[Rfam]
RNA: ZMP/ZTP riboswitch aptamer (pfl RNA motif)
RNA sequence: ACAAGGUCAUAUGACUGACGGAAACCGUGGAAUCAACCACAAGGAAGUAUGAUCAUAGUAAAAGCCGACCGUCUGGGCAAUCUGC
Dot-bracket structure: ..(.((((((((..(([[[[[.....((((......))))..))..)))))))).).......(((..]]]]]..))).......